[Rfam]
RNA sequence: CGGUCGGCAGACACCCAGGCGUCACUGCUCCUUUCGGAGGGCUAAACCUGCCA
Numbered sequence: 001c002g003g004u005c006g007g008c009a010g011a012c013a014c015c016c017a018g019g020c021g022u023c024a025c026u027g028c029u030c031c032u033u034u035c036g037g038a039g040g041g042c043u044a045a046a047c048c049u050g051c052c053a
Base pairs, nucleotide, nucleotide: 002015003014004013028039029038030037031036